[Rfam]
RNA: Small nucleolar RNA snoR99
RNA sequence: GUGCUGAUAGGAUUGAACAAAGUCCCACAUCCAUCUGUUUCACUUUGUCAGCAGUGUUUAUUGCUGAUCAUUUCAUGAUGGGAUAUAU
Numbered sequence: 001g002u003g004c005u006g007a008u009a010g011g012a013u014u015g016a017a018c019a020a021a022g023u024c025c026c027a028c029a030u031c032c033a034u035c036u037g038u039u040u041c042a043c044u045u046u047g048u049c050a051g052c053a054g055u056g057u058u059u060a061u062u063g064c065u066g067a068u069c070a071u072u073u074c075a076u077g078a079u080g081g082g083a084u085a086u087a088u
Stems, first nucleotide, its partner, number of pairs: 030082006047068008